[Rfam]
RNA sequence: ACUUCAUGGGUGUUAACCUGACGUAAUGCGAAUAGUCAACAUACCGAUUUUUCAGGUUUCCCGGUAUGGCCAACGAAAUGGCAGACGAGGGCCUCACGCAUUCCCAUG
Numbered sequence: 001a002c003u004u005c006a007u008g009g010g011u012g013u014u015a016a017c018c019u020g021a022c023g024u025a026a027u028g029c030g031a032a033u034a035g036u037c038a039a040c041a042u043a044c045c046g047a048u049u050u051u052u053c054a055g056g057u058u059u060c061c062c063g064g065u066a067u068g069g070c071c072a073a074c075g076a077a078a079u080g081g082c083a084g085a086c087g088a089g090g091g092c093c094u095c096a097c098g099c100a101u102u103c104c105c106a107u108g
Base pairs, nucleotide, nucleotide: 006107007106008105009104011023012022013021014020025102026101027100028099029098030097035092036091037090040068041067042066043065044064045063046062069082070081071080